[Rfam]
Rfam assigns this 81-nucleotide sequence from Onchocerca ochengi to the family "mir-57 microRNA precursor family". A search with the family's covariance model found it, with a score of 62 bits. The literature on the family includes a 2019 paper in Nucleic Acids Res by Kozomara et al., "miRBase: from microRNA sequences to function". Rfam 15.1 lists 50 matches to the family in 48 species.
RNA sequence: GCUCGUUCGUUUACCCUGUGGUACCGAGUUGUGUCUGAGCAUCAGCAAACACAAUCGGUCACUGGGUAAAGGACCUUGCUC
Number, nucleotide and partner (000 for none) at each position: 001g000002c000003u000004c000005g000006u000007u000008c000009g000010u000011u000012u068013a067014c066015c065016c000017u000018g062019u061020g060021g059022u000023a000024c058025c057026g000027a000028g056029u000030u054031g000032u053033g052034u051035c000036u049037g000038a000039g046040c045041a000042u000043c000044a000045g040046c039047a000048a000049a036050c000051a034052c033053a032054a030055u000056c028057g025058g024059u021060c020061a019062c018063u000064g000065g015066g014067u013068a012069a000070a000071g000072g000073a000074c000075c000076u000077u000078g000079c000080u000081c000